Shown here is a 198-nucleotide RNA sequence from Brachypodium distachyon, a member of the family "MIR1435 microRNA precursor family".

RNA sequence: UAGAUUUGUCCUAAGUCAAACUGAUGUCAGUUAGACAAGUUUGUAUAAAAAUAUACAAACAUUUAUAAUAUCAAAUAAAUACAGCAUGAACACAUAUUACUUGAUGGAGACGAUGAAACAAAUUUGGUGCUGCAAAUCUUGGUAUAUUUUUCUAGAAAGUUGGUCAAACUUAGAAACGUUUGACUUGGACAAAUUUAA
Numbered sequence: 001u002a003g004a005u006u007u008g009u010c011c012u013a014a015g016u017c018a019a020a021c022u023g024a025u026g027u028c029a030g031u032u033a034g035a036c037a038a039g040u041u042u043g044u045a046u047a048a049a050a051a052u053a054u055a056c057a058a059a060c061a062u063u064u065a066u067a068a069u070a071u072c073a074a075a076u077a078a079a080u081a082c083a084g085c086a087u088g089a090a091c092a093c094a095u096a097u098u099a100c101u102u103g104a105u106g107g108a109g110a111c112g113a114u115g116a117a118a119c120a121a122a123u124u125u126g127g128u129g130c131u132g133c134a135a136a137u138c139u140u141g142g143u144a145u146a147u148u149u150u151u152c153u154a155g156a157a158a159g160u161u162g163g164u165c166a167a168a169c170u171u172a173g174a175a176a177c178g179u180u181u182g183a184c185u186u187g188g189a190c191a192a193a194u195u196u197a198a
Base pairs, nucleotide, nucleotide: 005193006192007191008190009189011188012187013186014185015184016183017182018181019180020179021178023177025175031168032167034165035164044154045153047151048150049149050148051147054144055143056142058140059139061137062136063135064134066132067131071127072126073125074124075123076122
Dot-bracket structure: ....(((((.(((((((((((.(.(.....((.((........((.(((((..(((.((.((((.((...((((((.............................................))))))...)).)))).)).)))..))))).)).........)).))......).))))))))))))))))).....